This 84-nucleotide RNA from Malonomonas rubra belongs to the Rfam family "Group II catalytic intron D1-D4-1". Rfam's curators write: Group II introns are found in rRNA, tRNA and mRNA of organelles in fungi, plants and protists, and also in mRNA in bacteria.

RNA sequence: CUACUGGCGUCGAGAGGCGUUGGGAUGGAUCGGCAGAAGUCAGCAGAGGCCAUAGUAGCUGGGCUAACCACCACAGCGAAGGGC
Numbered sequence: 001c002u003a004c005u006g007g008c009g010u011c012g013a014g015a016g017g018c019g020u021u022g023g024g025a026u027g028g029a030u031c032g033g034c035a036g037a038a039g040u041c042a043g044c045a046g047a048g049g050c051c052a053u054a055g056u057a058g059c060u061g062g063g064c065u066a067a068c069c070a071c072c073a074c075a076g077c078g079a080a081g082g083g084c
Stems, first nucleotide, its partner, number of pairs: 001027001004023008040047002049084003058077004063072001
Pairs were carried over by alignment from the consensus structure.